[Rfam]
RNA sequence: GAAUCAGUAGGCGUCCCGACAGUAAUUGAAGUUAGUACGAGAGGAACCCUUCAUUCAGAUAAUUGGUUUUUGCGGUUGGUUGAAAGGCCAAUGCCGCGAAGCUACCAUCUGCUGGAUAAUGGCUGAAAGCCUCUAAGUCAGAAUCCAUGCUGGUUAAGGGACGCUAAAACCAGACCUUUAAAGCGCGAGAAAGUGCUCAAAUAGAUCUCUUAUGGGAUCGAAUGCCUAAUAUGAGGUUAUCCUCUUGGGUUGAAAGGCUCAAGUCGGAUACCUCUCAUGAUAAUGUCUAGCUUAAAGGUUGUAAAUCUCGAGCAGACGACUUGAAAUCGACGGGCUAUUGUAAGCACUAGAGUAGCCUUUGUUGCUACGAUGUGCUGAGAUUAAGGCCUUGUCUUUAGAUUUG
Numbered sequence: 001g002a003a004u005c006a007g008u009a010g011g012c013g014u015c016c017c018g019a020c021a022g023u024a025a026u027u028g029a030a031g032u033u034a035g036u037a038c039g040a041g042a043g044g045a046a047c048c049c050u051u052c053a054u055u056c057a058g059a060u061a062a063u064u065g066g067u068u069u070u071u072g073c074g075g076u077u078g079g080u081u082g083a084a085a086g087g088c089c090a091a092u093g094c095c096g097c098g099a100a101g102c103u104a105c106c107a108u109c110u111g112c113u114g115g116a117u118a119a120u121g122g123c124u125g126a127a128a129g130c131c132u133c134u135a136a137g138u139c140a141g142a143a144u145c146c147a148u149g150c151u152g153g154u155u156a157a158g159g160g161a162c163g164c165u166a167a168a169a170c171c172a173g174a175c176c177u178u179u180a181a182a183g184c185g186c187g188a189g190a191a192a193g194u195g196c197u198c199a200a201a202u203a204g205a206u207c208u209c210u211u212a213u214g215g216g217a218u219c220g221a222a223u224g225c226c227u228a229a230u231a232u233g234a235g236g237u238u239a240u241c242c243u244c245u246u247g248g249g250u251u252g253a254a255a256g257g258c259u260c261a262a263g264u265c266g267g268a269u270a271c272c273u274c275u276c277a278u279g280a281u282a283a284u285g286u287c288u289a290g291c292u293u294a295a296a297g298g299u300u301g302u303a304a305a306u307c308u309c310g311a312g313c314a315g316a317c318g319a320c321u322u323g324a325a326a327u328c329g330a331c332g333g334g335c336u337a338u339u340g341u342a343a344g345c346a347c348u349a350g351a352g353u354a355g356c357c358u359u360u361g362u363u364g365c366u367a368c369g370a371u372g373u374g375c376u377g378a379g380a381u382u383a384a385g386g387c388c389u390u391g392u393c394u395u396u397a398g399a400u401u402u403g
Stems, first nucleotide, its partner, number of pairs: 010165008020152004025055001027053005056111005064104003071098005076091006113147003120140005174299007303402005308324005329393004333388003337381002344375004349371001352368005